[Rfam]
RNA sequence: CUGUUCGACGACGGUCGGCGAGAUGAAGUGGAUAUGGGUGUCGAUCGCGCCGGCGGUGACGAUCUUGCCGUUGCCGGCGAUGAUCUCGGUCUCCGGGCCGAUGACCAGGUCGGGGUGGACGCCGUCCAUGGUGUCGGGGUUGCCGGCCUUGCCGACGGCGGUGAUCCGCCCGUCCCGGAUGCCGAUGUCGGCCUUGACGAUCCCCCAGUGGUCGACGACCACGGCGCCGGUGAUGACGGUGUCGGGGGCGCCCUCGGCGCGGGUGGUGCGGGCCUGGCCCAUGGACUCGCGG
Numbered sequence: 001c002u003g004u005u006c007g008a009c010g011a012c013g014g015u016c017g018g019c020g021a022g023a024u025g026a027a028g029u030g031g032a033u034a035u036g037g038g039u040g041u042c043g044a045u046c047g048c049g050c051c052g053g054c055g056g057u058g059a060c061g062a063u064c065u066u067g068c069c070g071u072u073g074c075c076g077g078c079g080a081u082g083a084u085c086u087c088g089g090u091c092u093c094c095g096g097g098c099c100g101a102u103g104a105c106c107a108g109g110u111c112g113g114g115g116u117g118g119a120c121g122c123c124g125u126c127c128a129u130g131g132u133g134u135c136g137g138g139g140u141u142g143c144c145g146g147c148c149u150u151g152c153c154g155a156c157g158g159c160g161g162u163g164a165u166c167c168g169c170c171c172g173u174c175c176c177g178g179a180u181g182c183c184g185a186u187g188u189c190g191g192c193c194u195u196g197a198c199g200a201u202c203c204c205c206c207a208g209u210g211g212u213c214g215a216c217g218a219c220c221a222c223g224g225c226g227c228c229g230g231u232g233a234u235g236a237c238g239g240u241g242u243c244g245g246g247g248g249c250g251c252c253c254u255c256g257g258c259g260c261g262g263g264u265g266g267u268g269c270g271g272g273c274c275u276g277g278c279c280c281a282u283g284g285a286c287u288c289g290c291g292g
Base pairs, nucleotide, nucleotide: 001292002291003290006289007288008287011162012161014159016158017075018074019073020072021071029052030051031050033049037046038045039044056068057067058066076153077152080149082147084145089143090142093139094138096135097134098133104129108126109125110124112122168278170277171276172275175271176270177269179267180266182263183262191225192224193223195221196220205214230260235255236254239253241251
Rfam assigns this 292-nucleotide RNA from Streptomyces solincola to the family "5' ureB small RNA".
On this family, see Wen et al., J Bacteriol 2013: "Helicobacter pylori 5'ureB-sRNA, a cis-encoded antisense small RNA, negatively regulates ureAB expression by transcription termination".
The source organism's lineage runs through Bacteria, Actinomycetota, Actinomycetes, Kitasatosporales and Streptomyces.
Rfam 15.1 lists 4,812 matches to the family in 4,480 species.
The match comes from Rfam's covariance-model search (77 bits).